Vault RNA: a 125-nucleotide sequence from Patiria miniata. Taxonomically the source falls in Patiria (Eukaryota, Echinodermata, Asterozoa, Valvatacea). Rfam classes the family as a non-coding RNA gene. It scores 38 bits against the family's covariance model.

RNA sequence: UUGCUGGCUUAGCAUUGUGGAUACUUCGUUGAGUAAUUCACUGGUAGAAUAUAAAGCCGUUAACUUUAAGGUAGUGGGUUCAAUUCCCACCUUAACACAAUUCACAUGCGCAGUUCAGCAUUUUU
Numbered sequence: 001u002u003g004c005u006g007g008c009u010u011a012g013c014a015u016u017g018u019g020g021a022u023a024c025u026u027c028g029u030u031g032a033g034u035a036a037u038u039c040a041c042u043g044g045u046a047g048a049a050u051a052u053a054a055a056g057c058c059g060u061u062a063a064c065u066u067u068a069a070g071g072u073a074g075u076g077g078g079u080u081c082a083a084u085u086c087c088c089a090c091c092u093u094a095a096c097a098c099a100a101u102u103c104a105c106a107u108g109c110g111c112a113g114u115u116c117a118g119c120a121u122u123u124u125u
Base pairs, nucleotide, nucleotide: 002120003119004118005117006116007115012109013108014107015106017105018104019103020102026083028081